[Rfam]
RNA sequence: GUCCUGAGCACGACAAUAAAAGGCUUUCCACGGUAAAUAGAGUUCGCUGAUCACGAAUGGCUCAACUAUGUACAGUGGACAAGUUAAUAUAUCAGCUGCCUUUUGAGCAGGUAGGCUGCAAUCCGAAAUGGAGUAAUCCAUAUGGGCUGCGGUUUAUUUGUUAUGCCAUUUUACAGCUGAGUU
Numbered sequence: 001g002u003c004c005u006g007a008g009c010a011c012g013a014c015a016a017u018a019a020a021a022g023g024c025u026u027u028c029c030a031c032g033g034u035a036a037a038u039a040g041a042g043u044u045c046g047c048u049g050a051u052c053a054c055g056a057a058u059g060g061c062u063c064a065a066c067u068a069u070g071u072a073c074a075g076u077g078g079a080c081a082a083g084u085u086a087a088u089a090u091a092u093c094a095g096c097u098g099c100c101u102u103u104u105g106a107g108c109a110g111g112u113a114g115g116c117u118g119c120a121a122u123c124c125g126a127a128a129u130g131g132a133g134u135a136a137u138c139c140a141u142a143u144g145g146g147c148u149g150c151g152g153u154u155u156a157u158u159u160g161u162u163a164u165g166c167c168a169u170u171u172u173a174c175a176g177c178u179g180a181g182u183u
Stems, first nucleotide, its partner, number of pairs: 028078004034072002037069004042058004060108006093179006115153005128141005